[Rfam]
RNA sequence: GGGUCGAGGGUCGCGCUUGGGUCGCGCGACGAGAAUGGACCCCGGACAGUGCCGUCUCGUAUGGUCGCCCGUGCAGCCACCCAACUGCACCGGCA
Number, nucleotide and partner (000 for none) at each position: 001g042002g041003g040004u039005c038006g000007a000008g000009g000010g030011u029012c028013g027014c026015g025016c024017u000018u000019g000020g000021g000022u000023c000024g016025c015026g014027c013028g012029a011030c010031g000032a000033g000034a000035a000036u000037g000038g005039a004040c003041c002042c001043c000044g000045g000046a000047c000048a000049g000050u000051g000052c000053c000054g000055u000056c000057u000058c000059g000060u000061a000062u000063g000064g000065u000066c000067g094068c093069c092070c000071g000072u089073g088074c087075a086076g085077c000078c000079a000080c000081c000082c000083a000084a000085c076086u075087g074088c073089a072090c000091c000092g069093g068094c067095a000